[Rfam]
RNA sequence: CGUCUCCUCCACCCUCCUCCUUGGUGUGGAUUUAAGCCCGAGCUCUGCUCGGGCUUUUUCUU
Numbered sequence: 001c002g003u004c005u006c007c008u009c010c011a012c013c014c015u016c017c018u019c020c021u022u023g024g025u026g027u028g029g030a031u032u033u034a035a036g037c038c039c040g041a042g043c044u045c046u047g048c049u050c051g052g053g054c055u056u057u058u059u060c061u062u
Stems, first nucleotide, its partner, number of pairs: 008030005013024002035055008

Betaproteobacteria toxic small RNA: a 62-nucleotide sequence from Azoarcus sp. KH32C.
Lineage of the source: Bacteria > Pseudomonadota > Betaproteobacteria > Rhodocyclales > Azoarcus.
Overexpression in amino aid rich medium attenuates growth, suggesting role in repressing amino acid intake and metabolism.